[Rfam]
RNA sequence: AGUAAUAGUAGGCAAACUUAUUGAAAAAUAAGGACGCAAAGCUUGAAGCCUGUUGAGAUAAUCUUUUUUCUAAAAAGAGGACUUUAUGGCGGUUCGGUUGCAAUC
Number, nucleotide and partner (000 for none) at each position: 001a000002g000003u000004a000005a000006u000007a000008g000009u000010a000011g000012g037013c036014a000015a000016a000017c032018u031019u030020a029021u028022u027023g000024a000025a000026a000027a022028a021029u020030a019031a018032g017033g000034a000035c000036g013037c012038a000039a000040a099041g098042c097043u096044u000045g095046a094047a093048g090049c089050c088051u000052g000053u000054u000055g084056a083057g082058a000059u000060a000061a000062u000063c000064u000065u000066u000067u000068u000069u000070c000071u000072a000073a000074a000075a000076a000077g000078a000079g000080g000081a000082c057083u056084u055085u000086a000087u000088g050089g049090c048091g000092g000093u047094u046095c045096g043097g042098u041099u040100g000101c000102a000103a000104u000105c000